The record is a 77-nucleotide RNA sequence from Actinoplanes campanulatus, which matches "tRNA" in Rfam. The source organism's lineage runs through Bacteria, Bacillati, Actinomycetota, Micromonosporaceae and Actinoplanes. It is annotated as a transfer RNA. A search with the family's covariance model found it, with a score of 47 bits. Rfam's curators write: Transfer RNA (tRNA) molecules are approximately 80 nucleotides in length.
RNA sequence: UGCGGGGUAGAGGAGCUCGGUCGUCCUCGCCGGCCUCAUAAGCCGGAGAUCACGUGGUUCAAAUCCCGUCCCCGCUC
Numbered sequence: 001u002g003c004g005g006g007g008u009a010g011a012g013g014a015g016c017u018c019g020g021u022c023g024u025c026c027u028c029g030c031c032g033g034c035c036u037c038a039u040a041a042g043c044c045g046g047a048g049a050u051c052a053c054g055u056g057g058u059u060c061a062a063a064u065c066c067c068g069u070c071c072c073c074g075c076u077c
Stems, first nucleotide, its partner, number of pairs: 002075006010028004030046005052069003056066002